Shown here is an 88-nucleotide sequence from Streptomyces sp. PBH53, a member of the family "sodF sRNA". The base pairs follow the family's consensus structure. Its family is annotated with mRNA binding, negative regulation of translation and regulation of mRNA stability in the Gene Ontology. A reference for the family is Kim et al. (2014), "Inverse regulation of Fe- and Ni-containing SOD genes by a Fur family regulator Nur through small RNA processed from 3'UTR of the sodF mRNA", Nucleic Acids Res. NCBI's taxonomy places the organism under Bacteria, Actinomycetota, Actinomycetes, Streptomycetaceae, Streptomyces. Rfam classes the family as a small RNA.
RNA sequence: ACGCCCUGCCGCUGAUCGUCUUCUCACCCUUCACGGCAGGCGGACACCGAAGGGGCUUCCGCGGGCGCACCGCCCGCGGGAGCCCCUC
Numbered sequence: 001a002c003g004c005c006c007u008g009c010c011g012c013u014g015a016u017c018g019u020c021u022u023c024u025c026a027c028c029c030u031u032c033a034c035g036g037c038a039g040g041c042g043g044a045c046a047c048c049g050a051a052g053g054g055g056c057u058u059c060c061g062c063g064g065g066c067g068c069a070c071c072g073c074c075c076g077c078g079g080g081a082g083c084c085c086c087u088c
Base pairs, nucleotide, nucleotide: 002042003041005040006039007038008037009036010035011034013033014032015031018028051087052086053085054084055083056082057081058080059079060078061077062076063075064074065073